[Rfam]
RNA sequence: GGCCUUGGAUAGACUCAAUCCAUAUGCGUUGGAGUGGAUUGGGGUGAAAUUUAAUUUAAGUUCUACUCCAAUCCACACCAACGCAUGUGAAUUGAUGCGAAUCCGACU
Numbered sequence: 001g002g003c004c005u006u007g008g009a010u011a012g013a014c015u016c017a018a019u020c021c022a023u024a025u026g027c028g029u030u031g032g033a034g035u036g037g038a039u040u041g042g043g044g045u046g047a048a049a050u051u052u053a054a055u056u057u058a059a060g061u062u063c064u065a066c067u068c069c070a071a072u073c074c075a076c077a078c079c080a081a082c083g084c085a086u087g088u089g090a091a092u093u094g095a096u097g098c099g100a101a102u103c104c105g106a107c108u
Stems, first nucleotide, its partner, number of pairs: 005106006014097001015095005021089011034076009044066003